[Rfam]
Background:
The record is a 174-nucleotide RNA sequence from Acidovorax sp., which matches "Manganese Mn2+ riboswitch aptamer (yybP-ykoY)" in Rfam. This RNA was originally discovered in E. coli during a large scale screen and was named SraF. The family was later found to exist upstream of related families of protein genes in many bacteria, including the the yybP and ykoK genes in B. subtilis. NCBI's taxonomy places the organism under Bacteria, Betaproteobacteria, Burkholderiales, Comamonadaceae, Acidovorax. It scores 64 bits against the family's covariance model. A reference for the family is Argaman et al. (2001), "Novel small RNA-encoding genes in the intergenic regions of Escherichia coli", Curr Biol.
RNA sequence: CCGCCGGUCUUUGGGGAGUAGCCCGCCCGGUGCGCAACGCGCCGGGGGCAUGCAUCAACAAACUUGGGUUCGGUGAACCUAUGGUGCAUGCGGUUUUUGAGCUGGGCGAGACCAUUGACUGCAUGCCGAUCCAAUGGCCGGAGUCGGGGUGCAGUCAAUGCGUUGUCUAUAACU
Number, nucleotide and partner (000 for none) at each position: 001c000002c000003g000004c000005c000006g000007g000008u000009c000010u000011u000012u000013g000014g000015g000016g000017a000018g000019u000020a000021g000022c000023c000024c000025g000026c046027c045028c044029g043030g042031u041032g040033c039034g038035c000036a000037a000038c034039g033040c032041g031042c030043c029044g028045g027046g026047g000048g091049c090050a089051u088052g087053c086054a085055u084056c083057a082058a000059c000060a000061a000062a000063c000064u000065u081066g080067g079068g078069u077070u076071c075072g000073g000074u000075g071076a070077a069078c068079c067080u066081a065082u057083g056084g055085u054086g053087c052088a051089u050090g049091c048092g000093g000094u000095u000096u000097u000098u000099g000100a000101g000102c000103u000104g000105g000106g000107c000108g000109a000110g000111a000112c000113c000114a000115u000116u000117g000118a000119c000120u000121g000122c000123a000124u000125g000126c000127c000128g000129a000130u000131c000132c000133a000134a000135u000136g000137g000138c000139c000140g000141g000142a000143g000144u000145c000146g000147g000148g000149g000150u000151g000152c000153a000154g000155u000156c000157a000158a000159u000160g000161c000162g000163u000164u000165g000166u000167c000168u000169a000170u000171a000172a000173c000174u000